Shown here is a 73-nucleotide RNA from Chrysodeixis includens, a member of the family "tRNA". A search with the family's covariance model found it, with a score of 60 bits. Transfer RNA (tRNA) molecules are approximately 80 nucleotides in length.
[Rfam]
RNA sequence: GGAGUUGUAGCUCAGUUGGUAGAGCGUUCGCUUAGCACGCGGAAGGACCCGGGAUCGAAACUCGGCAACUCCA
Numbered sequence: 001g002g003a004g005u006u007g008u009a010g011c012u013c014a015g016u017u018g019g020u021a022g023a024g025c026g027u028u029c030g031c032u033u034a035g036c037a038c039g040c041g042g043a044a045g046g047a048c049c050c051g052g053g054a055u056c057g058a059a060a061c062u063c064g065g066c067a068a069c070u071c072c073a
Stems, first nucleotide, its partner, number of pairs: 001072007010025004027043005049065005